[Rfam]
RNA sequence: UUGCCUUAAACUAAUGAGUAAGGAAAACAAAGCGUUGCGGUGAGAGCCGCUCGCGGUGCGGGACUCAAACCCUGCACGGCAAUUUUUGCGAGGGGAAGAGGCUCGCGCGGGUAUUGACACUGCUUACUUUUGCAGGACUUGCCUGUGUGGGCCUCCCU
Numbered sequence: 001u002u003g004c005c006u007u008a009a010a011c012u013a014a015u016g017a018g019u020a021a022g023g024a025a026a027a028c029a030a031a032g033c034g035u036u037g038c039g040g041u042g043a044g045a046g047c048c049g050c051u052c053g054c055g056g057u058g059c060g061g062g063a064c065u066c067a068a069a070c071c072c073u074g075c076a077c078g079g080c081a082a083u084u085u086u087u088g089c090g091a092g093g094g095g096a097a098g099a100g101g102c103u104c105g106c107g108c109g110g111g112u113a114u115u116g117a118c119a120c121u122g123c124u125u126a127c128u129u130u131u132g133c134a135g136g137a138c139u140u141g142c143c144u145g146u147g148u149g150g151g152c153c154u155c156c157c158u
Stems, first nucleotide, its partner, number of pairs: 004023005032054003037050004056077007091158005100153007108145002111142003120135004
Dot-bracket structure: ...(((((..........)))))........(((..((((......)))).))).(((((((........))))))).............(((((....(((((((.((.(((......((((........))))....))).)).))))))))))))
The family of this 158-nucleotide RNA from Oryza sativa is "U12 minor spliceosomal RNA". Rfam 15.1 lists 2,106 matches to the family in 1,170 species. Rfam links the family to the GO terms pre-mRNA branch point binding, mRNA branch site recognition and U12 snRNP. The sequence is in the family's curated seed alignment. It is annotated as a spliceosomal small nuclear RNA.